[Rfam]
RNA sequence: CUCUUUGGCUGAGUUAGUGAUCGGCUGAAGUUUCUAUCUAUUUUUGGAGAAAAAAAUGUCACUAAGUAAAGAAGUAAAAGCACAAAUCCUGGCUGAUUUCGGUCGUGGUGAA
Dot-bracket structure: ......((((((........))))))................(((((.(..........).)))))..............................................
This 112-nucleotide RNA sequence from Shewanella loihica belongs to the Rfam family "Ribosomal S15 leader". It is annotated as a cis-regulatory leader. From the family's description: The E. coli Ribosomal S15 gene 5' UTR can form two alternative structures. One that is a series of three hairpins, The other includes a pseudoknot. This structure causes translational regulation of the S15 protein. For this family Rfam cites "Pseudoknot and translational control in the expression of the S15 ribosomal protein" (Benard et al., Biochimie, 1996). Rfam links the family to the GO term regulation of translation, ncRNA-mediated.